[Rfam]
The record is a 77-nucleotide RNA sequence, which matches "Small nucleolar RNA snR60/Z15/Z230/Z193/J17" in Rfam. Its family is annotated with nucleolus and RNA processing in the Gene Ontology. Rfam classes the family as a C/D-box small nucleolar RNA. Rfam 15.1 lists 3,592 matches to the family in 1,855 species. Rfam's curators put it in the seed alignment. The family is grouped with related families in Rfam's "SNORD77 clan". On this family, see Lowe and Eddy, Science 1999: "A computational screen for methylation guide snoRNAs in yeast".

RNA sequence: GAUACCAUGAUGAUAACAUAGUUCAGCAGACUUAACUCUGAUGAACAAUCAUGUCUUUCGCUCCUAUCUGAUGUAUC
Numbered sequence: 001g002a003u004a005c006c007a008u009g010a011u012g013a014u015a016a017c018a019u020a021g022u023u024c025a026g027c028a029g030a031c032u033u034a035a036c037u038c039u040g041a042u043g044a045a046c047a048a049u050c051a052u053g054u055c056u057u058u059c060g061c062u063c064c065u066a067u068c069u070g071a072u073g074u075a076u077c
Stems, first nucleotide, its partner, number of pairs: 002076004